[Rfam]
RNA: SAM riboswitch aptamer (S box leader)
Nucleotides: 101
Base pairs, nucleotide, nucleotide: 001101003099004098005097006096007095008094013042014041015040016039017038021031022030023029026076027075028074043069044068045067046066048065049064051060052059053058073093078090079089080088081087082086
Number, partner (000 for none) and nucleotide at each position: 001101u002000a003099u004098u005097c006096a007095u008094c009000a010000a011000g012000a013042g014041u015040a016039a017038c018000g019000g020000a021031g022030g023029g024000a025000a026076u027075g028074g029023c030022c031021c032000c033000a034000u035000g036000a037000u038017g039016u040015u041014a042013c043069g044068g045067c046066a047000a048065c049064c050000a051060c052059a053058c054000g055000a056000a057000a058053g059052u060051g061000a062000a063000c064049g065048g066046u067045g068044c069043u070000a071000a072000g073093u074028c075027c076026a077000a078090c079089a080088g081087g082086a083000u084000u085000u086082u087081c088080c089079u090078g091000g092000c093073a094008g095007a096006u097005g098004a099003a100000g101001a